[Rfam]
RNA sequence: AAUAAGAAAAAUGACAAAUCAGAUUUAUCCUAUUGAUUUUCAGCUUUUUCCUCCUGAAAAAAAUUCAAAUCCAACUAAAAAUAUUAAAAAUCAGGAAGAAAAAUCUGAUUUGUUAUUCUCCUAUU
Numbered sequence: 001a002a003u004a005a006g007a008a009a010a011a012u013g014a015c016a017a018a019u020c021a022g023a024u025u026u027a028u029c030c031u032a033u034u035g036a037u038u039u040u041c042a043g044c045u046u047u048u049u050c051c052u053c054c055u056g057a058a059a060a061a062a063a064u065u066c067a068a069a070u071c072c073a074a075c076u077a078a079a080a081a082u083a084u085u086a087a088a089a090a091u092c093a094g095g096a097a098g099a100a101a102a103a104u105c106u107g108a109u110u111u112g113u114u115a116u117u118c119u120c121c122u123a124u125u
Base pairs, nucleotide, nucleotide: 001125002124003123004122006120007119010117011116012115013114014113015112016111017110018109019108020107021106022105023104024103025102026101028099031096033094034093035092036091037090038089039088040087042085043084046081047080048079049078
Rfam assigns this 125-nucleotide sequence from Gossypium trilobum to the family "MIR7504 microRNA precursor family". The match comes from Rfam's covariance-model search (92 bits).